[Rfam]
Background
The family of this 302-nucleotide RNA sequence from Hibiscus syriacus is "Plant signal recognition particle RNA". Its Rfam clan is "SRP clan". The family's RNA type in Rfam is non-coding RNA gene. Pairs were carried over by alignment from the consensus structure, which is taken from published work. Lineage of the source: Eukaryota > Streptophytina > Magnoliopsida > Malvales > Hibiscus.
RNA sequence: UCCGAGCUUUGUACGGAAGCUUGUAACUCGAGUGGGGGCAUUAAGGUGAUGGGACAUGGGUUUGGCUCAUGAGUUGGAUCCCACGAGGCAUUGUUAUGGUUUGCCCGUUCCAAGCAAAUAGUUGAGCCAUGGGACCUCAGUGAAAACUAUUGGUGUCGUGGCUAUUAGAGUGAAGGGUACAGCGUGAGGCUGGUUCACAGAGCAGCGAAGACCUUCCUCUCUUCGCAGUGGAAGGAUAACAAGCUUCAUCCUCAAGGGUCUCAUAUGUCUCACUGACCGACCUUAAAUGGACCAUCAUCUUU
Numbered sequence: 001u002c003c004g005a006g007c008u009u010u011g012u013a014c015g016g017a018a019g020c021u022u023g024u025a026a027c028u029c030g031a032g033u034g035g036g037g038g039c040a041u042u043a044a045g046g047u048g049a050u051g052g053g054a055c056a057u058g059g060g061u062u063u064g065g066c067u068c069a070u071g072a073g074u075u076g077g078a079u080c081c082c083a084c085g086a087g088g089c090a091u092u093g094u095u096a097u098g099g100u101u102u103g104c105c106c107g108u109u110c111c112a113a114g115c116a117a118a119u120a121g122u123u124g125a126g127c128c129a130u131g132g133g134a135c136c137u138c139a140g141u142g143a144a145a146a147c148u149a150u151u152g153g154u155g156u157c158g159u160g161g162c163u164a165u166u167a168g169a170g171u172g173a174a175g176g177g178u179a180c181a182g183c184g185u186g187a188g189g190c191u192g193g194u195u196c197a198c199a200g201a202g203c204a205g206c207g208a209a210g211a212c213c214u215u216c217c218u219c220u221c222u223u224c225g226c227a228g229u230g231g232a233a234g235g236a237u238a239a240c241a242a243g244c245u246u247c248a249u250c251c252u253c254a255a256g257g258g259u260c261u262c263a264u265a266u267g268u269c270u271c272a273c274u275g276a277c278c279g280a281c282c283u284u285a286a287a288u289g290g291a292c293c294a295u296c297a298u299c300u301u302u
Stems, first nucleotide, its partner, number of pairs: 002038002004022007027036003043301010055289002057286001059284001060282001062280004067276003070272004075267001076261006085253004090249002098245006105235002108233005114226002117223002120220002125163008134154003139148003165170001172216005183207003190200003